Overview
Bacterial small signal recognition particle RNA: an 84-nucleotide sequence from Lactiplantibacillus plantarum. Rfam describes the family as follows. The signal recognition particle (SRP) is a universally conserved ribonucleoprotein involved in the co-translational targeting of proteins to membranes. The sequence is in the family's curated seed alignment.
Nucleotides: 084
Base pairs, nucleotide, nucleotide: 001080002079003078004077005076006075007074008071010070011069012068013067014066015065018061021058022057028053029052030051031050036045037044038043
Number, partner (000 for none) and nucleotide at each position: 001080c002079a003078a004077a005076a006075g007074g008071c009000a010070a011069g012068g013067g014066u015065g016000g017000a018061u019000u020000u021058a022057c023000g024000a025000a026000u027000c028053g029052u030051g031050u032000c033000a034000g035000g036045u037044c038043c039000g040000g041000a042000a043038g044037g045036a046000a047000g048000c049000a050031g051030c052029a053028c054000u055000a056000a057022g058021u059000u060000u061018g062000c063000u064000u065015c066014a067013u068012c069011u070010u071008g072000u073000g074007c075006c076005u077004u078003u079002u080001g081000u082000u083000u084000u